A member of the RNA family "SAM riboswitch aptamer (S box leader)" from Lysinibacillus sp. BF-4, 104 nucleotides long.
RNA sequence: UCCUUAUAAAGAGUUCGGGGGAGGAACUGGUCCUAUGAUCCCGCAGCAACCGGUGGUAUACACAAAGGUGCUAAGUCCAGCAAGCCAAGCUUGAAAGAUGAGGA
Numbered sequence: 001u002c003c004u005u006a007u008a009a010a011g012a013g014u015u016c017g018g019g020g021g022a023g024g025a026a027c028u029g030g031u032c033c034u035a036u037g038a039u040c041c042c043g044c045a046g047c048a049a050c051c052g053g054u055g056g057u058a059u060a061c062a063c064a065a066a067g068g069u070g071c072u073a074a075g076u077c078c079a080g081c082a083a084g085c086c087a088a089g090c091u092u093g094a095a096a097g098a099u100g101a102g103g104a
Stems, first nucleotide, its partner, number of pairs: 001104007013044001016043004023033003027080004045072004050068002053063003076096001081093005

It scores 81 bits against the family's covariance model. For this family Rfam cites "The plasticity of a structural motif in RNA: structural polymorphism of a kink turn as a function of its environment" (Daldrop and Lilley, RNA, 2013).